Rfam assigns this 69-nucleotide sequence from Tepidicella xavieri to the family "ilvH RNA".
RNA sequence: GACGAAUCUAUUUGCCGCCAAGCCCGUGACUUACCGGUGACGGGGGAGGGCGGUGGAAAAGAGGAAUCG
Numbered sequence: 001g002a003c004g005a006a007u008c009u010a011u012u013u014g015c016c017g018c019c020a021a022g023c024c025c026g027u028g029a030c031u032u033a034c035c036g037g038u039g040a041c042g043g044g045g046g047a048g049g050g051c052g053g054u055g056g057a058a059a060a061g062a063g064g065a066a067u068c069g
Stems, first nucleotide, its partner, number of pairs: 011057003015053005023044005029038003
Dot-bracket structure: ..........(((.(((((...(((((.(((....))).)))))....))))).)))............
It is annotated as a cis-regulatory element. The family's consensus secondary structure is taken from published work.